[Rfam]
RNA sequence: GGGACAUUUAUUUUGUCUGUUUCUUCUUGCAGUGAAGAUAACUUUUUGUAAAUGUCCUGGAGAAAUGUAGUAGUUCAUAUUUUGCAAGAAGAAAGGAUGGAUCUUUUGUUUAAAAAAC
Numbered sequence: 001g002g003g004a005c006a007u008u009u010a011u012u013u014u015g016u017c018u019g020u021u022u023c024u025u026c027u028u029g030c031a032g033u034g035a036a037g038a039u040a041a042c043u044u045u046u047u048g049u050a051a052a053u054g055u056c057c058u059g060g061a062g063a064a065a066u067g068u069a070g071u072a073g074u075u076c077a078u079a080u081u082u083u084g085c086a087a088g089a090a091g092a093a094a095g096g097a098u099g100g101a102u103c104u105u106u107u108g109u110u111u112a113a114a115a116a117a118c
Stems, first nucleotide, its partner, number of pairs: 002057010019042003022038005068112003080095004